This 147-nucleotide RNA from Vagococcus elongatus belongs to the Rfam family "glmS glucosamine-6-phosphate activated ribozyme aptamer". The match comes from Rfam's covariance-model search (79 bits). The organism belongs to Vagococcus, within Bacteria.
RNA sequence: CAUUUGUGGAUAGCGCCAGUUCUGUUGAGACAGAAGACGAGGAGAGAACUAAUCGAAGUGUCGGCGGGUAGUUCUAGGGAGUGCACUCUAGAGAUUUUUAACAAAUAGAAUCGCAAGGUUCAAACAAAAUAAAAAUCACGCACUGGA
Numbered sequence: 001c002a003u004u005u006g007u008g009g010a011u012a013g014c015g016c017c018a019g020u021u022c023u024g025u026u027g028a029g030a031c032a033g034a035a036g037a038c039g040a041g042g043a044g045a046g047a048a049c050u051a052a053u054c055g056a057a058g059u060g061u062c063g064g065c066g067g068g069u070a071g072u073u074c075u076a077g078g079g080a081g082u083g084c085a086c087u088c089u090a091g092a093g094a095u096u097u098u099u100a101a102c103a104a105a106u107a108g109a110a111u112c113g114c115a116a117g118g119u120u121c122a123a124a125c126a127a128a129a130u131a132a133a134a135a136u137c138a139c140g141c142a143c144u145g146g147a
Stems, first nucleotide, its partner, number of pairs: 020035006045075005053064004076089004093137007108121005
Dot-bracket structure: ...................((((((....)))))).........(((((...((((....))))......)))))((((......))))...(((((((........(((((....))))).........)))))))..........

About the family: This entry contains a glucosamine-6-phosphate activated ribozyme that is found in the mRNA for GlmS. GlmS is an enzyme that uses fructose-6-phosphate and glutamine to generate glucosamine-6-phosphate. The ribozyme catalyses self cleavage of the glmS mRNA that is thought to regulate GlmS activity.